Rfam assigns this 173-nucleotide RNA from Paraburkholderia solisilvae to the family "Burkholderia RNA 14". The literature on the family includes a 2013 paper in Genomics by Ramos et al., "Experimental identification of small non-coding regulatory RNAs in the opportunistic human pathogen Burkholderia cenocepacia J2315". The family's RNA type in Rfam is small RNA. The family has 3 seed sequences and 98 matches in Rfam 15.1. The match comes from Rfam's covariance-model search (132 bits). About the family: Co-purified with Hfq, expression confirmed by Northern blot. Putative functional homologue of PA-SraF. Overlaps coding sequence.
RNA sequence: GUGGGCAUCGUCACCGUCCAGCCGACCCCUGUGCCCGUGGUCACCGAGCUGCCGGGCCGCACCAGCGCGUAUCUCGUCGCGCAGGUGCGCGCUCGGGUCGACGGCAUCGUGCUGCGGCGCGAAUUCGUCGAGGGCAGCGAGGUGAAGGCCGGCCAGCGGCUCUACAAGAUCGA
Numbered sequence: 001g002u003g004g005g006c007a008u009c010g011u012c013a014c015c016g017u018c019c020a021g022c023c024g025a026c027c028c029c030u031g032u033g034c035c036c037g038u039g040g041u042c043a044c045c046g047a048g049c050u051g052c053c054g055g056g057c058c059g060c061a062c063c064a065g066c067g068c069g070u071a072u073c074u075c076g077u078c079g080c081g082c083a084g085g086u087g088c089g090c091g092c093u094c095g096g097g098u099c100g101a102c103g104g105c106a107u108c109g110u111g112c113u114g115c116g117g118c119g120c121g122a123a124u125u126c127g128u129c130g131a132g133g134g135c136a137g138c139g140a141g142g143u144g145a146a147g148g149c150c151g152g153c154c155a156g157c158g159g160c161u162c163u164a165c166a167a168g169a170u171c172g173a
Stems, first nucleotide, its partner, number of pairs: 004053004008047003011043001013041004018037001021034002023031002055150004059143002063139001067135002072133001074131002079092004094121002097118001099116002102114005157172002160168002